Purine riboswitch aptamer: a 102-nucleotide sequence from Lentibacillus amyloliquefaciens. Lineage of the source: Bacteria > Bacillota > Caryophanales > Bacillaceae > Lentibacillus.
RNA sequence: AAUAAUAAUGCUAGCGCCGUUCAUAUAUCCUCGAUAAUAUGGAUCGAAAGUUUCUACCGGAGUACCGUAAAUACUCUGACUAUGAAGGCGGAUUUCAAUAGG
Numbered sequence: 001a002a003u004a005a006u007a008a009u010g011c012u013a014g015c016g017c018c019g020u021u022c023a024u025a026u027a028u029c030c031u032c033g034a035u036a037a038u039a040u041g042g043a044u045c046g047a048a049a050g051u052u053u054c055u056a057c058c059g060g061a062g063u064a065c066c067g068u069a070a071a072u073a074c075u076c077u078g079a080c081u082a083u084g085a086a087g088g089c090g091g092a093u094u095u096c097a098a099u100a101g102g
Stems, first nucleotide, its partner, number of pairs: 018088001020086006031047005058078007